[Rfam]
RNA: ZMP/ZTP riboswitch aptamer (pfl RNA motif)
RNA sequence: UCGACGCGUCGCGACUGGCGUUCGGGUGGUCUACCACCGGGGAGCGACUGACACGGUUGGUGGCCGUACGCCUGGGCUGCCGCU
Numbered sequence: 001u002c003g004a005c006g007c008g009u010c011g012c013g014a015c016u017g018g019c020g021u022u023c024g025g026g027u028g029g030u031c032u033a034c035c036a037c038c039g040g041g042g043a044g045c046g047a048c049u050g051a052c053a054c055g056g057u058u059g060g061u062g063g064c065c066g067u068a069c070g071c072c073u074g075g076g077c078u079g080c081c082g083c084u
Stems, first nucleotide, its partner, number of pairs: 008048005015041002017072005026037004061079005